RNA sequence: CACACCUUAGUGACGGCCUCACAGUAAACCACUUGUUGGGAUGUGAGGUCUGAUGUGUCUUUGUG
Numbered sequence: 001c002a003c004a005c006c007u008u009a010g011u012g013a014c015g016g017c018c019u020c021a022c023a024g025u026a027a028a029c030c031a032c033u034u035g036u037u038g039g040g041a042u043g044u045g046a047g048g049u050c051u052g053a054u055g056u057g058u059c060u061u062u063g064u065g
Stems, first nucleotide, its partner, number of pairs: 001065004015050009029039003
The family of this 65-nucleotide RNA sequence from Sander lucioperca is "Selenocysteine insertion sequence 1".
The family's RNA type in Rfam is cis-regulatory element.
A search with the family's covariance model found it, with a score of 38 bits.
Gene Ontology term of the family: selenocysteine incorporation.
The incorporation of selenocysteine into a protein sequence is directed by an in-frame UGA codon (usually a stop codon) within the coding region of the mRNA. Selenoprotein mRNAs contain a conserved secondary structure in the 3' UTR that is required for the distinction of UGA stop from UGA selenocysteine.